[Rfam]
RNA sequence: GGGCGGUUGGCGCAGCGGUAGCGCACUUCGUUCACACCGAAGGGGUCGCUGGUUCGAAUCCAGUACCGCCCA
Numbered sequence: 001g002g003g004c005g006g007u008u009g010g011c012g013c014a015g016c017g018g019u020a021g022c023g024c025a026c027u028u029c030g031u032u033c034a035c036a037c038c039g040a041a042g043g044g045g046u047c048g049c050u051g052g053u054u055c056g057a058a059u060c061c062a063g064u065a066c067c068g069c070c071c072a
Stems, first nucleotide, its partner, number of pairs: 001071007010024004026042005048064005
Shown here is a 72-nucleotide RNA sequence from Raineyella antarctica, a member of the family "tRNA". Taxonomically the source falls in Raineyella (Bacteria, Bacillati, Actinomycetota, Propionibacteriaceae). A search with the family's covariance model found it, with a score of 67 bits.